3'-terminal pseudoknot in SPCSV: a 69-nucleotide RNA from polyscias crinivirus 1.
RNA sequence: CGGUUUUUUCUAAAUCUUGUGUUUAAUACACAAGAGCCUUGAGAAACCUAGUAAAUAAAUAAAUUAGGC
Numbered sequence: 001c002g003g004u005u006u007u008u009u010c011u012a013a014a015u016c017u018u019g020u021g022u023u024u025a026a027u028a029c030a031c032a033a034g035a036g037c038c039u040u041g042a043g044a045a046a047c048c049u050a051g052u053a054a055a056u057a058a059a060u061a062a063a064u065u066a067g068g069c
Base pairs, nucleotide, nucleotide: 002048003047004046005045006044008043009042010041016034017033018032019031020030021029022028037067
The literature on the family includes a 2004 paper in J Gen Virol by Livieratos et al., "Analysis of the RNA of Potato yellow vein virus: evidence for a tripartite genome and conserved 3'-terminal structures among members of the genus Crinivirus". By type it is a cis-regulatory element.